[Rfam]
RNA sequence: UCCAAAAGCUACUGGGUUUCGCAGAGCAGCUGGAUCCAAUGCUAUUGGGUCAUGCCAGGCAACAGGACCCCAAGCGAUUGGGUUCUGCUGGGCAACAGGUUCCAACGUUGUUAGAUCCUGCCAAGCCAGACUCAAUAACAUUUUUUUGACU
Numbered sequence: 001u002c003c004a005a006a007a008g009c010u011a012c013u014g015g016g017u018u019u020c021g022c023a024g025a026g027c028a029g030c031u032g033g034a035u036c037c038a039a040u041g042c043u044a045u046u047g048g049g050u051c052a053u054g055c056c057a058g059g060c061a062a063c064a065g066g067a068c069c070c071c072a073a074g075c076g077a078u079u080g081g082g083u084u085c086u087g088c089u090g091g092g093c094a095a096c097a098g099g100u101u102c103c104a105a106c107g108u109u110g111u112u113a114g115a116u117c118c119u120g121c122c123a124a125g126c127c128a129g130a131c132u133c134a135a136u137a138a139c140a141u142u143u144u145u146u147u148g149a150c151u
Stems, first nucleotide, its partner, number of pairs: 001149002004146003007142002011136001013134007021126002026121004033051008056114001058112006
This 151-nucleotide sequence from Populus tomentosa belongs to the Rfam family "MIR474 microRNA precursor family".
Rfam links the family to the GO terms miRNA-mediated post-transcriptional gene silencing and RISC complex.
A reference for the family is Lu et al. (2005), "Novel and mechanical stress-responsive MicroRNAs in Populus trichocarpa that are absent from Arabidopsis", Plant Cell.